TPP riboswitch aptamer (THI element): a 99-nucleotide RNA sequence from Megasphaera geminata. For this family Rfam cites "Comparative genomics of thiamin biosynthesis in procaryotes. New genes and regulatory mechanisms" (Rodionov et al., J Biol Chem, 2002). Pairs were carried over by alignment from the consensus structure, which is taken from published work. The organism belongs to Megasphaera geminata, within Bacteria.
RNA sequence: AAUAAAAGCUAGGGGAGCCGUAAACGGCUGAGAAAAGACACUUUGACCCUUUUACCUGAUGUAGAUAAUCCUACCGUAGGGAAGCUUAACAGGACUUCU
Dot-bracket structure: .....(((((((((.(((((....))))......(((...))))..))))....((((..((((......))))..))))..)))))............